[Rfam]
RNA sequence: GGGCCAGCUAUAGCCCAGUGGUUCCUUCAGUGUUACAAGUGUUUGUAUCUCGCCCUGUCGGGGGUUCGAUCCCGCGGGCACCUCUGGCUCAUUU
Dot-bracket structure: .((((((.....((((.((((.....((.(...................................).))..))))))))....)))))).....
Shown here is a 94-nucleotide RNA sequence from Chlamydotis macqueenii, a member of the family "Vault RNA".
A search with the family's covariance model found it, with a score of 53 bits.
By type it is a non-coding RNA gene.
The family's consensus secondary structure is taken from published work.